A member of the RNA family "c-di-AMP riboswitch aptamer (ydaO/yuaA leader)" from Streptomyces griseoviridis, 160 nucleotides long. The match comes from Rfam's covariance-model search (55 bits). From the family's description: This family represents a conserved RNA structure found upstream of the ydaO and yuaA genes in Bacillus subtilis and related genes in other bacteria.
[Rfam]
RNA sequence: CCGGACCAUUCACCCGUACUCGGCAGGAGCGGGGGACCCACAGGUACAACCGCCUGUUCCGGUCUCCGGAACGGCUCGGGGUAAAGCCGCGUCGCACGACGCGGCCGGGCAUCUCCAGUCCGCACCCGACAGCUCACCUCGCAGGCGCCGGAGAGGAAUU
Numbered sequence: 001c002c003g004g005a006c007c008a009u010u011c012a013c014c015c016g017u018a019c020u021c022g023g024c025a026g027g028a029g030c031g032g033g034g035g036a037c038c039c040a041c042a043g044g045u046a047c048a049a050c051c052g053c054c055u056g057u058u059c060c061g062g063u064c065u066c067c068g069g070a071a072c073g074g075c076u077c078g079g080g081g082u083a084a085a086g087c088c089g090c091g092u093c094g095c096a097c098g099a100c101g102c103g104g105c106c107g108g109g110c111a112u113c114u115c116c117a118g119u120c121c122g123c124a125c126c127c128g129a130c131a132g133c134u135c136a137c138c139u140c141g142c143a144g145g146c147g148c149c150g151g152a153g154a155g156g157a158a159u160u
Stems, first nucleotide, its partner, number of pairs: 001145002007027001029142006039078001079127003087104004107121004

Pairs were carried over by alignment from the consensus structure.